The record is a 78-nucleotide RNA sequence from Nocardioides dokdonensis, which matches "ZMP/ZTP riboswitch aptamer (pfl RNA motif)" in Rfam. Pairs were carried over by alignment from the consensus structure, which is taken from published work.
RNA sequence: UGGAGCCACCACGACUGGCGCAGGUGGGCAGACCACCAGGGAGUGACGUCGGGAGCAUCGACCGCCUGGGUGCUCCUC
Numbered sequence: 001u002g003g004a005g006c007c008a009c010c011a012c013g014a015c016u017g018g019c020g021c022a023g024g025u026g027g028g029c030a031g032a033c034c035a036c037c038a039g040g041g042a043g044u045g046a047c048g049u050c051g052g053g054a055g056c057a058u059c060g061a062c063c064g065c066c067u068g069g070g071u072g073c074u075c076c077u078c
Stems, first nucleotide, its partner, number of pairs: 005050001007048001010045003015040002017066004024036004055073005